[Rfam]
The family of this 173-nucleotide sequence from Pseudactinobacillus ducreyi is "Molybdenum/Tungsten riboswitch aptamer (Moco RNA motif)". The source organism's lineage runs through Bacteria, Pseudomonadota, Gammaproteobacteria, Pasteurellaceae and Pseudactinobacillus ducreyi. Rfam 15.1 lists 1,248 matches to the family in 836 species.

RNA sequence: UAACUUAAACGAUACCGAGCUUGUUAGCCUAAGUCUAUUGAUAAGGCAGCAAAGCCUGCAAUAUAAGCGGUCGAGUUGAUGAAAUAUUUAGCUAUUAAUCGCUUAUUUUGCACAGGAUAGUAAAGAAAUGCACUAUCCUCUCAUAUUCAGAAAGGUGUCAAAUUUUCAUUCAC
Numbered sequence: 001u002a003a004c005u006u007a008a009a010c011g012a013u014a015c016c017g018a019g020c021u022u023g024u025u026a027g028c029c030u031a032a033g034u035c036u037a038u039u040g041a042u043a044a045g046g047c048a049g050c051a052a053a054g055c056c057u058g059c060a061a062u063a064u065a066a067g068c069g070g071u072c073g074a075g076u077u078g079a080u081g082a083a084a085u086a087u088u089u090a091g092c093u094a095u096u097a098a099u100c101g102c103u104u105a106u107u108u109u110g111c112a113c114a115g116g117a118u119a120g121u122a123a124a125g126a127a128a129u130g131c132a133c134u135a136u137c138c139u140c141u142c143a144u145a146u147u148c149a150g151a152a153a154g155g156u157g158u159c160a161a162a163u164u165u166u167c168a169u170u171c172a173c
Stems, first nucleotide, its partner, number of pairs: 011159006019055004025049001027047003033042003058111004114139008124129001140150002